[Rfam]
RNA sequence: AUCUCCUCCCCGGGAGAGAGCAGGCAAACGUCAGCCUGCCGCCGAAGGCGCAACCGCCCCGGAAACGCUCAGGCAAAAGGACCGGGAGAGAGA
Numbered sequence: 001a002u003c004u005c006c007u008c009c010c011c012g013g014g015a016g017a018g019a020g021c022a023g024g025c026a027a028a029c030g031u032c033a034g035c036c037u038g039c040c041g042c043c044g045a046a047g048g049c050g051c052a053a054c055c056g057c058c059c060c061g062g063a064a065a066c067g068c069u070c071a072g073g074c075a076a077a078a079g080g081a082c083c084g085g086g087a088g089a090g091a092g093a
Stems, first nucleotide, its partner, number of pairs: 007088001009086005020039006041074003044070002048068003054062002

Rfam assigns this 93-nucleotide RNA sequence from Henriciella mobilis to the family "Glycine riboswitch aptamer".